[Rfam]
A member of the RNA family "K10 transport/localisation element (TLS)" from Drosophila melanogaster, 48 nucleotides long. NCBI's taxonomy places the organism under Eukaryota, Allotriocarida, Pterygota, Eremoneura, Sophophora. On this family, see Serano and Cohen, Development 1995: "A small predicted stem-loop structure mediates oocyte localization of Drosophila K10 mRNA". Rfam 15.1 lists 18 matches to the family in 17 species.

RNA sequence: GGGGUUGGUGUAUUUUUAAAUUAAUUCUUAAAAACUACAAUCAGCUCC
Numbered sequence: 001g002g003g004g005u006u007g008g009u010g011u012a013u014u015u016u017u018a019a020a021u022u023a024a025u026u027c028u029u030a031a032a033a034a035c036u037a038c039a040a041u042c043a044g045c046u047c048c
Stems, first nucleotide, its partner, number of pairs: 001048009010038003013034007